[Rfam]
RNA sequence: GUGCUCGGGUUUCUCUUCAAAACGCACAAGUCUUUCGCCUUUUACUAAAGAUUUCCGUGGAGAGGGACAUGCCUGAGUUUGUGCUAUUUUUGGAGGCCCUGUUCUUCUGGACGGGGC
Dot-bracket structure: ..((((..(((((((((((........((((((((...........))))))))...)))))))))))......)))).................((((((..........))))))

Shown here is a 117-nucleotide RNA sequence from Albula goreensis, a member of the family "U5 spliceosomal RNA". U5 RNA is a component of both types of known spliceosome. The precise function of this molecule is unknown, though it is known that the 5' loop is required for splice site selection and p220 binding, and that both the 3' stem-loop and the Sm site are important for Sm protein binding and cap methylation. The family's consensus secondary structure is taken from published work. The match comes from Rfam's covariance-model search (82 bits).